Overview:
Rfam assigns this 117-nucleotide RNA from Candidatus Methylaffinis lahnbergensis to the family "ALIL pseudoknot". The literature on the family includes a 2008 paper in J Biol Chem by Mazauric et al., "Apical loop-internal loop RNA pseudoknots: a new type of stimulator of -1 translational frameshifting in bacteria". Lineage of the source: Bacteria > Pseudomonadati > Pseudomonadota > Hyphomicrobiales > Candidatus Methylaffinis. Its family is annotated with positive regulation of translational frameshifting in the Gene Ontology. Rfam classes the family as a cis-regulatory element.
[Rfam]
Nucleotides: 117
Stems, first nucleotide, its partner, number of pairs: 016032005078117005089112002092109002095106003
Number, partner (000 for none) and nucleotide at each position: 001000c002000g003000c004000u005000u006000a007000u008000u009000u010000u011000g012000c013000c014000c015000a016032g017031g018030c019029g020028g021000a022000g023000c024000u025000c026000g027000a028020c029019c030018g031017c032016c033000g034000a035000u036000a037000c038000a039000a040000g041000c042000c043000a044000u045000g046000a047000u048000c049000g050000c051000g052000u053000u054000c055000a056000u057000c058000g059000a060000c061000g062000a063000u064000c065000a066000c067000c068000g069000c070000g071000g072000g073000g074000c075000g076000u077000a078117u079116g080115g081114g082113g083000u084000c085000g086000a087000g088000c089112c090111g091000a092109u093108c094000u095106g096105c097104a098000a099000g100000g101000u102000g103000c104097u105096g106095c107000c108093g109092a110000u111090c112089g113082c114081c115080c116079c117078a